[Rfam]
RNA sequence: AGUAGUAGAAGCAUAGUUGGGUGAAAAUCCCAACCGCCGCAGGGGCUAGGUUUCCUCGGCCAUGUUCGUCAGCCGAGGGUUAGUCGGUCCUAAGGUGCACCGUAACUCGAGUGUACCGAAAGGGAAACAGGUUAAUAUUCCUGUACCGUCCGUCUGUAGCGAAAGCCCUGACGCUUCGGGAUAUGUCAGGCGGGACCGUCGUCCCGUCUAAGCAUCAGAAGCCUGUGGAGUACCGUAAUGGUGAGAAGCAGGUGAAUGUGUGAUGGGGUAACCUGACAAAUUCCUGGAGCCCGUGAAAAGGGAGACGGCGUCCGUACCGAGAACCGACACAGGUGCCCCUCGCUGAGAAGGCGAAGGCGUGU
Numbered sequence: 001a002g003u004a005g006u007a008g009a010a011g012c013a014u015a016g017u018u019g020g021g022u023g024a025a026a027a028u029c030c031c032a033a034c035c036g037c038c039g040c041a042g043g044g045g046c047u048a049g050g051u052u053u054c055c056u057c058g059g060c061c062a063u064g065u066u067c068g069u070c071a072g073c074c075g076a077g078g079g080u081u082a083g084u085c086g087g088u089c090c091u092a093a094g095g096u097g098c099a100c101c102g103u104a105a106c107u108c109g110a111g112u113g114u115a116c117c118g119a120a121a122g123g124g125a126a127a128c129a130g131g132u133u134a135a136u137a138u139u140c141c142u143g144u145a146c147c148g149u150c151c152g153u154c155u156g157u158a159g160c161g162a163a164a165g166c167c168c169u170g171a172c173g174c175u176u177c178g179g180g181a182u183a184u185g186u187c188a189g190g191c192g193g194g195a196c197c198g199u200c201g202u203c204c205c206g207u208c209u210a211a212g213c214a215u216c217a218g219a220a221g222c223c224u225g226u227g228g229a230g231u232a233c234c235g236u237a238a239u240g241g242u243g244a245g246a247a248g249c250a251g252g253u254g255a256a257u258g259u260g261u262g263a264u265g266g267g268g269u270a271a272c273c274u275g276a277c278a279a280a281u282u283c284c285u286g287g288a289g290c291c292c293g294u295g296a297a298a299a300g301g302g303a304g305a306c307g308g309c310g311u312c313c314g315u316a317c318c319g320a321g322a323a324c325c326g327a328c329a330c331a332g333g334u335g336c337c338c339c340u341c342g343c344u345g346a347g348a349a350g351g352c353g354a355a356g357g358c359g360u361g362u
Stems, first nucleotide, its partner, number of pairs: 016034006035359004043338004049318002054078006063071002085314003089123002094117006101109002127144005147310002150308006167302003173290009184278005189208006212261004222252005232242003267272001324333002340354004
Rfam assigns this 362-nucleotide part of an RNA from Methanolinea tarda to the family "Archaeal large subunit ribosomal RNA".
It is one of the family's seed sequences.